[Rfam]
RNA sequence: ACACAGAUGGGAGGUGGUCCACGAAGUGAUUUCAGAUUGGACGCGUGAGGUGACUGCGCGCUAGCGCACCUCGACUGCUUCGAGGGGCGCCGCCCGGCGCAAUUCCCAGCAGUUCACCGCAGCCCGUGGGCCGUGCAGGUCGUCCCCUGCACUCGUCGCACCGAGUUCGCUCGGUCGACAGGCCCGCGGGCUGUUCCAU
Numbered sequence: 001a002c003a004c005a006g007a008u009g010g011g012a013g014g015u016g017g018u019c020c021a022c023g024a025a026g027u028g029a030u031u032u033c034a035g036a037u038u039g040g041a042c043g044c045g046u047g048a049g050g051u052g053a054c055u056g057c058g059c060g061c062u063a064g065c066g067c068a069c070c071u072c073g074a075c076u077g078c079u080u081c082g083a084g085g086g087g088c089g090c091c092g093c094c095c096g097g098c099g100c101a102a103u104u105c106c107c108a109g110c111a112g113u114u115c116a117c118c119g120c121a122g123c124c125c126g127u128g129g130g131c132c133g134u135g136c137a138g139g140u141c142g143u144c145c146c147c148u149g150c151a152c153u154c155g156u157c158g159c160a161c162c163g164a165g166u167u168c169g170c171u172c173g174g175u176c177g178a179c180a181g182g183c184c185c186g187c188g189g190g191c192u193g194u195u196c197c198a199u
Stems, first nucleotide, its partner, number of pairs: 014057005059099004064094001066090002069087001070084002120193013134151006
The family of this 199-nucleotide RNA from Janibacter sp. HTCC2649 is "Actinobacteria sRNA Ms_IGR-5". By type it is a small RNA. On this family, see Li et al., RNA 2013: "Identification of small RNAs in Mycobacterium smegmatis using heterologous Hfq". Lineage of the source: Bacteria > Actinomycetota > Actinomycetes > Micrococcales > Janibacter.